Rfam assigns this 307-nucleotide RNA sequence from Arachis duranensis to the family "Plant signal recognition particle RNA". Taxonomically the source falls in Arachis (Eukaryota, Streptophyta, Euphyllophyta, Dalbergieae). A search with the family's covariance model found it, with a score of 240 bits.
[Rfam]
RNA sequence: GCCGAGCUGUGUAGCGCCAGUUUGUGACCCAAGUGGGGGCAAUUAAGGUGAUGGAACAGGUGCUUGGGCUUGCUAGGUUGGGCCUGCAAGGGCAAACUGUUGGCUUGCCCACUCCAAGUUGGGAGUUGCGACCGGUGGUUUAGGCGAAGGCCUAGGCCCCUUGGCUCCUAGAACGGAGGGCAAUGCGUGAGGCUGGUUUAACAGAGCAGCGAUCACUUCCUGCUCCCAACAGUGGAGGGAUUACAGGCCGCCGCUCUUCUGGCCCAGAAUGACCUUGUAGGCCUAGUGUUCCUGGACCAUCAUUUUU
Dot-bracket structure: (((((((((........))))))....(((....))))))....((((((((((..((((.(((.((.(((((..(((((((((.(.(.(((........(((((((.((.(((((.(((((((((.(.(.(.((.(((((((((....))))))))).)).).).).......(((((......(((....(((......)))....)))....))))).)))))))))..)))))))....)))))))...)))).).))))).....))))..))))))).)))..)).))..)))))))))).
Rfam links the family to the GO terms signal recognition particle, endoplasmic reticulum targeting and SRP-dependent cotranslational protein targeting to membrane, signal sequence recognition. Rfam 15.1 lists 4,988 matches to the family in 266 species. The base pairs follow the family's consensus structure, which is taken from published work. By type it is a non-coding RNA gene.